[Rfam]
Rfam assigns this 72-nucleotide RNA sequence from Roseovarius azorensis to the family "Singlet oxygen resistance RNA X". Rfam's curators write: SorX (RSs2461)like SorY is a singlet oxygen induced sRNA that counteracts oxidative stress by targeting mRNA for a transporter in Rhodobacter. It also has an impact on resistance against organic hydroperoxides. It targets SD sequence of potA mRNA via an aSD sequence. The aSD sequence and some neighbouring nucleotides are identical to the one of SorY (targets takP mRNA). It is annotated as a small RNA. NCBI's taxonomy places the organism under Bacteria, Pseudomonadati, Alphaproteobacteria, Roseobacteraceae, Roseovarius. Pairs were carried over by alignment from the consensus structure. The match comes from Rfam's covariance-model search (52 bits).
RNA sequence: CUUAUGAAUAUGUGCGGUUGACGCAUGUACCUCCCUGUUGGACUGGCCCCGGCAUCGCGCCGGGGUCUUUUU
Numbered sequence: 001c002u003u004a005u006g007a008a009u010a011u012g013u014g015c016g017g018u019u020g021a022c023g024c025a026u027g028u029a030c031c032u033c034c035c036u037g038u039u040g041g042a043c044u045g046g047c048c049c050c051g052g053c054a055u056c057g058c059g060c061c062g063g064g065g066u067c068u069u070u071u072u
Stems, first nucleotide, its partner, number of pairs: 008028007046066008